[Rfam]
RNA: SAH (S-adenosyl-L-homocysteine) riboswitch aptamer
RNA sequence: GCCGCCAAGGAGCGUUGCAGCCGGCCCUGAGCCGGUCAGGCUUGGUGUGCUGUCCUAUCCUGCCCAACGACGCUCACCUGCC
Numbered sequence: 001g002c003c004g005c006c007a008a009g010g011a012g013c014g015u016u017g018c019a020g021c022c023g024g025c026c027c028u029g030a031g032c033c034g035g036u037c038a039g040g041c042u043u044g045g046u047g048u049g050c051u052g053u054c055c056u057a058u059c060c061u062g063c064c065c066a067a068c069g070a071c072g073c074u075c076a077c078c079u080g081c082c
Base pairs, nucleotide, nucleotide: 003047004046005045006044007043008042021035022034023033024032025031